Streptococcus sRNA SpR18: a 130-nucleotide RNA sequence from Veillonella montpellierensis.
RNA sequence: AUCAAUGGUUACAGAAGAUAAAAAACUGUAACUGGGAUUAAAAUGGGAACAUUUGUAAAAAAGAAUAAACUACAUACUAGCUCCAAGUAGUUUGCAUUUGGACAAAAAAUUAGAUCAUAACUUAGUAUUA
Numbered sequence: 001a002u003c004a005a006u007g008g009u010u011a012c013a014g015a016a017g018a019u020a021a022a023a024a025a026c027u028g029u030a031a032c033u034g035g036g037a038u039u040a041a042a043a044u045g046g047g048a049a050c051a052u053u054u055g056u057a058a059a060a061a062a063g064a065a066u067a068a069a070c071u072a073c074a075u076a077c078u079a080g081c082u083c084c085a086a087g088u089a090g091u092u093u094g095c096a097u098u099u100g101g102a103c104a105a106a107a108a109a110u111u112a113g114a115u116c117a118u119a120a121c122u123u124a125g126u127a128u129u130a
Base pairs, nucleotide, nucleotide: 006034007033008032009031010030011029012028013027014026037123043118044117045116046115051066052065053064054063080103083101084100085099086098087097088096